[Rfam]
RNA sequence: AGAGGUCACAAGUUUGAGGUCGUGGCAGAAGUGUUCAUGAUGCAGCUAUGUCAGAUUCCAAUGAAUCUGCAAAUUCUGCU
Numbered sequence: 001a002g003a004g005g006u007c008a009c010a011a012g013u014u015u016g017a018g019g020u021c022g023u024g025g026c027a028g029a030a031g032u033g034u035u036c037a038u039g040a041u042g043c044a045g046c047u048a049u050g051u052c053a054g055a056u057u058c059c060a061a062u063g064a065a066u067c068u069g070c071a072a073a074u075u076c077u078g079c080u
Stems, first nucleotide, its partner, number of pairs: 013048001018047003024080007031043003052069007

A member of the RNA family "Mammalian CPEB3 ribozyme" from Alligator mississippiensis, 80 nucleotides long. The match comes from Rfam's covariance-model search (44 bits). The family's consensus secondary structure is taken from published work.